[Rfam]
RNA sequence: AGUUCAUUACCAGGCUUCCAGAUUGCAGUUUCUCUCGUGCCAAGGAUGUGACCACAAAACAUUUCCCCACCAAGUUUUCUUUCUGCUGUGUUGCUGGCAUUCAGCCUAUUGAGAAGAUUA
Numbered sequence: 001a002g003u004u005c006a007u008u009a010c011c012a013g014g015c016u017u018c019c020a021g022a023u024u025g026c027a028g029u030u031u032c033u034c035u036c037g038u039g040c041c042a043a044g045g046a047u048g049u050g051a052c053c054a055c056a057a058a059a060c061a062u063u064u065c066c067c068c069a070c071c072a073a074g075u076u077u078u079c080u081u082u083c084u085g086c087u088g089u090g091u092u093g094c095u096g097g098c099a100u101u102c103a104g105c106c107u108a109u110u111g112a113g114a115a116g117a118u119u120a
Stems, first nucleotide, its partner, number of pairs: 004051004010045002025040003066113001068111002074105003084099003
The family of this 120-nucleotide RNA sequence from Phyllostomus discolor is "Small nucleolar RNA SNORA32".
Its family is annotated with RNA processing and nucleolus in the Gene Ontology.
About the family: ACA32 is a member of the H/ACA class of snoRNA that guide the sites of modification of uridines to pseudouridines.
The family has 9 seed sequences and 615 matches in Rfam 15.1.